[Rfam]
RNA sequence: UACUAUCUAGUAUGGUAGAAAAAAUAUUUUUCUACCAUACUAUACUAGUAUUGUUAUUCUACUGUAUAAUGUUUGCUCU
Numbered sequence: 001u002a003c004u005a006u007c008u009a010g011u012a013u014g015g016u017a018g019a020a021a022a023a024a025u026a027u028u029u030u031u032c033u034a035c036c037a038u039a040c041u042a043u044a045c046u047a048g049u050a051u052u053g054u055u056a057u058u059c060u061a062c063u064g065u066a067u068a069a070u071g072u073u074u075g076c077u078c079u
Base pairs, nucleotide, nucleotide: 006044008042009041010040011039012038013037014036015035016034017033018032019031020030021029022028023027
Description
A member of the RNA family "Plastid-psbM 3UTR RNA" from Cannabis sativa, 79 nucleotides long. It scores 58 bits against the family's covariance model. The source organism's lineage runs through Eukaryota, Streptophytina, Tracheophyta, eudicotyledons and Cannabis. A reference for the family is Richter et al. (2023), "Retrograde signaling in plants: A critical review focusing on the GUN pathway and beyond", Plant Commun.